RNA: c-di-AMP riboswitch aptamer (ydaO/yuaA leader)
RNA sequence: GGCGCGGACCCGCUUAGUCGUGCUCGCACGAGCCGGGGACCCAUUGCAAUUGGGGUGAAUCCGCGGGCCAUUGGUCCGCGGUAGGGCGAUCUUUCCCGCCCGAAUCCGUCAGCUAACCCGGUCGGCGGUAUCGGAAGGAGAC
Numbered sequence: 001g002g003c004g005c006g007g008a009c010c011c012g013c014u015u016a017g018u019c020g021u022g023c024u025c026g027c028a029c030g031a032g033c034c035g036g037g038g039a040c041c042c043a044u045u046g047c048a049a050u051u052g053g054g055g056u057g058a059a060u061c062c063g064c065g066g067g068c069c070a071u072u073g074g075u076c077c078g079c080g081g082u083a084g085g086g087c088g089a090u091c092u093u094u095c096c097c098g099c100c101c102g103a104a105u106c107c108g109u110c111a112g113c114u115a116a117c118c119c120g121g122u123c124g125g126c127g128g129u130a131u132c133g134g135a136a137g138g139a140g141a142c
Stems, first nucleotide, its partner, number of pairs: 011127004018031003032122006042052002053107003061081006084101004
Dot-bracket structure: ..........((((...(((........)))((((((....((.......))(((.....((((((.........))))))..((((..........))))...))).........)))))).))))...............